Rfam assigns this 75-nucleotide sequence from Zapornia atra to the family "Small nucleolar RNA SNORD19".

RNA sequence: GAGCCAUGAAGAAGAUCUUAAAGGAACCUGAGAUUCUGUUGAAGACAGAAGAUCCAACUCUGAGCUCGCUGCCCC
Numbered sequence: 001g002a003g004c005c006a007u008g009a010a011g012a013a014g015a016u017c018u019u020a021a022a023g024g025a026a027c028c029u030g031a032g033a034u035u036c037u038g039u040u041g042a043a044g045a046c047a048g049a050a051g052a053u054c055c056a057a058c059u060c061u062g063a064g065c066u067c068g069c070u071g072c073c074c075c
Stems, first nucleotide, its partner, number of pairs: 001067004
NCBI's taxonomy places the organism under Eukaryota, Eumetazoa, Euteleostomi, Theropoda, Zapornia. Rfam classes the family as a C/D-box small nucleolar RNA.